[Rfam]
RNA sequence: UGGUAGAUGCACCCUGAUAACUGACUCCCCCGAUCGCUAAAACGGCGUUAGGGGGUUUUUUCU
Numbered sequence: 001u002g003g004u005a006g007a008u009g010c011a012c013c014c015u016g017a018u019a020a021c022u023g024a025c026u027c028c029c030c031c032g033a034u035c036g037c038u039a040a041a042a043c044g045g046c047g048u049u050a051g052g053g054g055g056u057u058u059u060u061u062c063u
Stems, first nucleotide, its partner, number of pairs: 002013003027055005033049001035047003
Rfam assigns this 63-nucleotide RNA from Cyanomargarita calcarea to the family "Nitrogen stress-induced RNA 1". Taxonomically the source falls in Cyanomargarita calcarea (Bacteria, Cyanobacteriota, Cyanomargaritaceae, Cyanomargarita). Rfam classes the family as a small RNA.